[Rfam]
RNA: Plastid-psbA-3 3UTR RNA
RNA sequence: AAAGGAGCGAUAAAUUCUUUCUUGUUCUAUCAAGAGGGCAUUAUUGCUCCUUUUUUU
Dot-bracket structure: (((((((((((((.....((((((......))))))....)))))))))))))....